A member of the RNA family "U7 small nuclear RNA" from Otolemur garnettii, 63 nucleotides long. NCBI's taxonomy places the organism under Eukaryota, Metazoa, Teleostomi, Galagidae, Otolemur. The family's consensus secondary structure was predicted with PFOLD.

Nucleotides: 063
Stems, first nucleotide, its partner, number of pairs: 034060003037054007
Number, partner (000 for none) and nucleotide at each position: 001000a002000a003000g004000u005000g006000u007000u008000a009000c010000a011000g012000c013000u014000u015000c016000u017000u018000u019000a020000c021000a022000a023000u024000u025000u026000g027000u028000c029000u030000a031000g032000u033000a034060g035059g036058u037054u038053u039052c040051c041050a042049g043048u044000a045000a046000c047000a048043a049042c050041u051040g052039g053038a054037a055000a056000a057000u058036g059035c060034c061000a062000c063000c